[Rfam]
RNA sequence: GGUCCACUAAGUCCGUGCCCAACCUCCUCGUGGUGUGGACUGGGAACUUUAUGAUGGACAGGCACAUAAUGCUAACUGGGCACGG
Dot-bracket structure: ............((((((((((((.......)))............(.(((((...........))))).).....)))))))))
RNA: drz-agam-1 ribozyme
Organism: Thrips palmi